RNA sequence: AGGGCAAGCAGCGACUGGCGGCUCGGGGAUGGUCGAACCAUCGGGGAGCUCGUUCACGGGAGUCGACCGCCUGGGCUCCCGGC
Numbered sequence: 001a002g003g004g005c006a007a008g009c010a011g012c013g014a015c016u017g018g019c020g021g022c023u024c025g026g027g028g029a030u031g032g033u034c035g036a037a038c039c040a041u042c043g044g045g046g047a048g049c050u051c052g053u054u055c056a057c058g059g060g061a062g063u064c065g066a067c068c069g070c071c072u073g074g075g076c077u078c079c080c081g082g083c
Stems, first nucleotide, its partner, number of pairs: 003054003010050003015045002017071005029041004060078005